Description: 7SK RNA: a 326-nucleotide RNA from Chloroceryle aenea. Taxonomically the source falls in Chloroceryle (Eukaryota, Eumetazoa, Sauria, Coraciiformes). Rfam classes the family as a non-coding RNA gene. Clan: 7SK clan. For this family Rfam cites "Structural analyses of the 7SK ribonucleoprotein (RNP), the most abundant human small RNP of unknown function" (Wassarman and Steitz, Mol Cell Biol, 1991). 7SK was discovered as an abundant small nuclear RNA in the mid-70s but a possible function has only recently been suggested. Two independent studies have found that 7SK RNA binds the CDK9/cyclin T complex (known as elongation factor P-TEFb). P-TEFb activates transcription by phosphorylating the C-terminal domain of RNA polymerase II. This process is negatively regulated by the 7SK RNP. The secondary structure of 7SK RNA shown here was proposed by Wasserman and Steitz on the basis of chemical modification and enzymatic cleavage experiments. This family contains a number of annotated pseudogenes and 7SK derived repeats.

[Rfam]
RNA sequence: GGAUGUGAGCACGAUCUAGCUGUGACAUCUGUCACCCCACUUAUCACUACAGUUGAUUCAGCUGAUCUGGCUGGCUAGGAAGGUGUCCCCUUCCUCCCUCACCACUUCAUGUGCAUCCCUCCAGAAACUGCACGCUCAGUCAGAGAGGAUGACCUUCCCUGAUAGUGGAGCACUGUUCAUUAGUCAAAGGUACGUGGUAGCUGUGCUCCCUUGCUAGAAUCUCCAAACAAGCUCCACGCCCAUUUGCAGGAGAAUGUAGGGAGUCAAGCUUCCAAGACUGCAGACACAUCCAGGUGAGGCACUGAAUGGGUUGAUCUGCCAUUAUU
Number, nucleotide and partner (000 for none) at each position: 001g108002g107003a106004u000005g102006u101007g100008a099009g098010c000011a000012c000013g093014a092015u000016c000017u000018a000019g089020c000021u000022g000023u000024g087025a086026c085027a084028u083029c082030u081031g000032u079033c078034a000035c074036c073037c070038c069039a068040c000041u000042u000043a066044u065045c064046a000047c061048u060049a000050c000051a000052g000053u000054u000055g000056a000057u000058u000059c000060a048061g047062c000063u000064g045065a044066u043067c000068u039069g038070g037071c000072u000073g036074g035075c000076u000077a000078g033079g032080a000081a030082g029083g028084u027085g026086u025087c024088c000089c019090c000091u000092u014093c013094c000095u000096c000097c000098c009099u008100c007101a006102c005103c000104a000105c000106u003107u002108c001109a000110u000111g000112u000113g000114c000115a000116u000117c170118c168119c167120u000121c165122c139123a000124g137125a136126a000127a000128c134129u000130g000131c000132a000133c000134g128135c000136u125137c124138a000139g122140u162141c161142a160143g000144a000145g000146a000147g158148g157149a156150u000151g000152a000153c000154c000155u000156u149157c148158c147159c000160u142161g141162a140163u000164a000165g121166u000167g119168g118169a000170g117171c000172a000173c000174u000175g000176u000177u000178c000179a000180u000181u000182a000183g000184u000185c000186a000187a000188a000189g000190g000191u000192a000193c000194g000195u000196g000197g000198u000199a000200g269201c268202u267203g000204u000205g000206c263207u262208c000209c261210c260211u259212u258213g257214c256215u000216a000217g000218a000219a000220u000221c252222u251223c250224c249225a000226a000227a000228c246229a245230a244231g243232c000233u000234c000235c000236a000237c000238g000239c000240c000241c000242a000243u231244u230245u229246g228247c000248a000249g224250g223251a222252g221253a000254a000255u000256g214257u213258a212259g211260g210261g209262a207263g206264u000265c000266a000267a202268g201269c200270u000271u000272c000273c000274a000275a000276g000277a000278c000279u000280g000281c000282a000283g000284a000285c000286a000287c000288a000289u000290c000291c000292a000293g326294g325295u000296g322297a000298g320299g319300c318301a315302c000303u313304g312305a311306a000307u000308g000309g000310g000311u305312u304313g303314a000315u301316c000317u000318g300319c299320c298321a000322u296323u000324a000325u294326u293